Source information
mir-602 microRNA precursor family: an 85-nucleotide sequence from Rhinopithecus roxellana. The base pairs follow the family's consensus structure, which was predicted with RNAalifold. NCBI's taxonomy places the organism under Eukaryota, Chordata, Vertebrata, Eutheria, Rhinopithecus. The match comes from Rfam's covariance-model search (94 bits). Its family is annotated with miRNA-mediated post-transcriptional gene silencing and RISC complex in the Gene Ontology.

[Rfam]
RNA sequence: UCUCGCCCCCGCCUGACACGAGAGACAGCUGCAGCCUGCCGUGUUCACUCGGGCCGAGUGCGUCUCCUGUCAGGCAAGGGAGAGC
Numbered sequence: 001u002c003u004c005g006c007c008c009c010c011g012c013c014u015g016a017c018a019c020g021a022g023a024g025a026c027a028g029c030u031g032c033a034g035c036c037u038g039c040c041g042u043g044u045u046c047a048c049u050c051g052g053g054c055c056g057a058g059u060g061c062g063u064c065u066c067c068u069g070u071c072a073g074g075c076a077a078g079g080g081a082g083a084g085c
Stems, first nucleotide, its partner, number of pairs: 002084003006080003011075008020067001022065001024064003028059003032056001034054005041048002